[Rfam]
RNA sequence: UAUGACACUCCGAGAUUGUGUUAUAUUAUCACUUGAAAAUUAAAAAAAUUAUAUAAAUUUUUAGGUGAUGACGUGAUAUAAUCUUAGAGUGUCAU
Numbered sequence: 001u002a003u004g005a006c007a008c009u010c011c012g013a014g015a016u017u018g019u020g021u022u023a024u025a026u027u028a029u030c031a032c033u034u035g036a037a038a039a040u041u042a043a044a045a046a047a048a049u050u051a052u053a054u055a056a057a058u059u060u061u062u063a064g065g066u067g068a069u070g071a072c073g074u075g076a077u078a079u080a081a082u083c084u085u086a087g088a089g090u091g092u093c094a095u
Base pairs, nucleotide, nucleotide: 003094004093005092006091007090008089009088012085013084014083015082016081017080018079019078020077021076022075023074024073026071027070028069029068030067031066032065033064034063035062036061037060038059039058040057041056
Rfam assigns this 95-nucleotide RNA sequence from Gossypium anomalum to the family "MIR8675 microRNA precursor family". Its family is annotated with miRNA-mediated post-transcriptional gene silencing and RISC complex in the Gene Ontology. Pairs were carried over by alignment from the consensus structure, which was predicted with RNAalifold. The match comes from Rfam's covariance-model search (92 bits). Rfam 15.1 lists 111 matches to the family in 18 species.